Shown here is a 263-nucleotide RNA from Aptenodytes patagonicus, a member of the family "Small Cajal body specific RNA 6". U88 is small Cajal body specific RNA (scaRNA). scaRNAs are a novel class of small nuclear RNAs which localise to the Cajal bodies. Rfam 15.1 lists 1,309 matches to the family in 627 species. The literature on the family includes a 2002 paper in EMBO J by Darzacq et al., "Cajal body-specific small nuclear RNAs: a novel class of 2'-O-methylation and pseudouridylation guide RNAs". By type it is a small Cajal body RNA.

[Rfam]
RNA sequence: AGUCUGUGAUGAAUAGUAAAAGGUCUGAUUAUCCGAAGACUUGCACUUCCAUGACCUUUUCUCCCAGCAGUUUCUCACCAGUCAUGGCACAGUAAUGGUGUGGCUGGCAGAGUGUUUGCUGACAGUUUGUGAUGUGUUCAGUUCAUGUUAACCUGAAGUAUCGGAGACAUGACUGGGAUCAGCAUCCAACAGUCUACUUGAAGGAGUUUGAGGUCUUGGGAUUGUUACAGCUGGACAUGUGAUCUGACUUUUCUGCUGAGACC
Numbered sequence: 001a002g003u004c005u006g007u008g009a010u011g012a013a014u015a016g017u018a019a020a021a022g023g024u025c026u027g028a029u030u031a032u033c034c035g036a037a038g039a040c041u042u043g044c045a046c047u048u049c050c051a052u053g054a055c056c057u058u059u060u061c062u063c064c065c066a067g068c069a070g071u072u073u074c075u076c077a078c079c080a081g082u083c084a085u086g087g088c089a090c091a092g093u094a095a096u097g098g099u100g101u102g103g104c105u106g107g108c109a110g111a112g113u114g115u116u117u118g119c120u121g122a123c124a125g126u127u128u129g130u131g132a133u134g135u136g137u138u139c140a141g142u143u144c145a146u147g148u149u150a151a152c153c154u155g156a157a158g159u160a161u162c163g164g165a166g167a168c169a170u171g172a173c174u175g176g177g178a179u180c181a182g183c184a185u186c187c188a189a190c191a192g193u194c195u196a197c198u199u200g201a202a203g204g205a206g207u208u209u210g211a212g213g214u215c216u217u218g219g220g221a222u223u224g225u226u227a228c229a230g231c232u233g234g235a236c237a238u239g240u241g242a243u244c245u246g247a248c249u250u251u252u253c254u255g256c257u258g259a260g261a262c263c
Stems, first nucleotide, its partner, number of pairs: 002262003037245003041241001047221005053215002061206004065121006078107009129187001131186005144171006152163001